[Rfam]
RNA sequence: UAACGCAAGUUUGAGGCCAUAGUAGAAGCACUACCAGUGCAGCCCUGUCACGUUCCAAUGAAUCUGUGAAUUCUGCU
Numbered sequence: 001u002a003a004c005g006c007a008a009g010u011u012u013g014a015g016g017c018c019a020u021a022g023u024a025g026a027a028g029c030a031c032u033a034c035c036a037g038u039g040c041a042g043c044c045c046u047g048u049c050a051c052g053u054u055c056c057a058a059u060g061a062a063u064c065u066g067u068g069a070a071u072u073c074u075g076c077u
Stems, first nucleotide, its partner, number of pairs: 013045001015044003021077007028040003049066002052063004
RNA: Mammalian CPEB3 ribozyme
Organism: Crocodylus porosus